[Rfam]
Shown here is a 375-nucleotide RNA sequence from Brevibacterium jeotgali, a member of the family "transfer-messenger RNA".
Bacterial tmRNA, also known as 10Sa RNA or SsrA, is named for its dual tRNA and mRNA-like properties.
The source organism's lineage runs through Bacteria, Bacillati, Actinomycetota, Brevibacteriaceae and Brevibacterium.

RNA sequence: GGGGAUGAUCGGUUUCGACGCCGGCUGUUGAGCCGGGAGAAGCGGGCCGAGAAGGCAGAGUCAACUCGUUAAUGUCCUCUGCAAACCAAUAGGUGCUGAAAACAAAACUCGCACCGACUUCGCCCUCGCUGCCUGACAGCGAGCUGAGCGAGUCCGUCAGGCCGGGGUAGCUUCCGCUCCGGAUCCUGGCGUCAGCUAGGAAGCCACUGCUGCUGACAUUCGUCGAGGGUGUCAGCGGGACUCUUACUCGAAUCCGUCCGUUGGUCUACGUGUUCGUGCGGUGACCAGGACCUAAGAAACUCUUCACGGACUGCGCCCGGAGAAGUCCCAGCGAUGAGUCGGCGGACGCGGGUUCGAUUCCCGCCAUCUCCACCC
Number, nucleotide and partner (000 for none) at each position: 001g371002g370003g369004g368005a367006u366007g365008a000009u000010c000011g000012g000013u000014u000015u000016c000017g000018a000019c344020g343021c342022c341023g340024g339025c338026u337027g000028u000029u000030g000031a000032g332033c331034c000035g329036g328037g327038a326039g000040a000041a000042g000043c319044g318045g317046g316047c315048c068049g067050a066051g065052a000053a000054g000055g082056c081057a080058g079059a078060g077061u000062c000063a000064a000065c051066u050067c049068g048069u000070u000071a000072a000073u000074g000075u000076c000077c060078u059079c058080u057081g056082c055083a000084a000085a000086c000087c000088a000089a000090u000091a000092g000093g000094u000095g000096c000097u000098g000099a000100a000101a000102a000103c000104a000105a000106a000107a000108c000109u000110c000111g000112c000113a000114c000115c000116g000117a000118c000119u000120u000121c000122g000123c000124c000125c143126u142127c141128g140129c139130u138131g137132c000133c000134u000135g000136a000137c131138a130139g129140c128141g127142a126143g125144c000145u000146g000147a000148g000149c000150g000151a000152g000153u000154c000155c191156g190157u189158c188159a187160g186161g000162c182163c181164g180165g179166g178167g177168u176169a000170g204171c203172u202173u201174c200175c199176g168177c167178u166179c165180c164181g163182g162183a000184u000185c000186c160187u159188g158189g157190c156191g155192u000193c000194a000195g000196c000197u000198a000199g175200g174201a173202a172203g171204c170205c000206a000207c000208u000209g000210c238211u237212g236213c235214u234215g233216a232217c231218a230219u000220u000221c000222g000223u251224c250225g249226a248227g000228g000229g000230u218231g217232u216233c215234a214235g213236c212237g211238g210239g000240a000241c000242u000243c000244u000245u000246a000247c000248u226249c225250g224251a223252a000253u000254c000255c000256g291257u290258c289259c288260g000261u000262u287263g286264g285265u000266c000267u000268a000269c280270g279271u000272g311273u310274u309275c308276g305277u000278g303279c270280g269281g000282u000283g000284a000285c264286c263287a262288g259289g258290a257291c256292c000293u000294a000295a000296g000297a000298a000299a000300c000301u000302c000303u278304u000305c276306a000307c000308g275309g274310a273311c272312u000313g000314c000315g047316c046317c045318c044319g043320g000321a000322g000323a000324a000325g000326u038327c037328c036329c035330a000331g033332c032333g000334a000335u000336g000337a026338g025339u024340c023341g022342g021343c020344g019345g000346a000347c000348g364349c363350g362351g361352g360353u000354u000355c000356g000357a000358u000359u000360c352361c351362c350363g349364c348365c007366a006367u005368c004369u003370c002371c001372a000373c000374c000375c000